[Rfam]
RNA sequence: GAGUCAGUGUUUGUGGCAAGACUAAGGGCUUCCGGCCCGGAGUCGCAGCGAAAGCAAGUCCGAACAGGGCGCAAUAAGUCGCAGGUACUGGACCCGAAGCGGAGGUGACCUACCCUUGGCCAGGUUGAAGCAUGGGUAAAACCAUGUGGAGGACCGAACAGGUGAACGUUGAAAAGUUCUCUGAUGAGCUGAGGGUAGGAGUGAAAGGCUAAUCAAACCCCGUGAUAGCUGGUU
Numbered sequence: 001g002a003g004u005c006a007g008u009g010u011u012u013g014u015g016g017c018a019a020g021a022c023u024a025a026g027g028g029c030u031u032c033c034g035g036c037c038c039g040g041a042g043u044c045g046c047a048g049c050g051a052a053a054g055c056a057a058g059u060c061c062g063a064a065c066a067g068g069g070c071g072c073a074a075u076a077a078g079u080c081g082c083a084g085g086u087a088c089u090g091g092a093c094c095c096g097a098a099g100c101g102g103a104g105g106u107g108a109c110c111u112a113c114c115c116u117u118g119g120c121c122a123g124g125u126u127g128a129a130g131c132a133u134g135g136g137u138a139a140a141a142c143c144a145u146g147u148g149g150a151g152g153a154c155c156g157a158a159c160a161g162g163u164g165a166a167c168g169u170u171g172a173a174a175a176g177u178u179c180u181c182u183g184a185u186g187a188g189c190u191g192a193g194g195g196u197a198g199g200a201g202u203g204a205a206a207g208g209c210u211a212a213u214c215a216a217a218c219c220c221c222g223u224g225a226u227a228g229c230u231g232g233u234u
Base pairs, nucleotide, nucleotide: 005090006089007088008087009086010085011084012083013082014081015080016079017078020044021043022042023041026038027037028036048055049054058070059069060068061067093232094231096229100222101221102220104219105218106217110198111197112196113195114194115193116192117191118190119189120188121186123155124154125153126152130147131146132145133144134143135142159183160182161181164179165178166177167176200210201209202208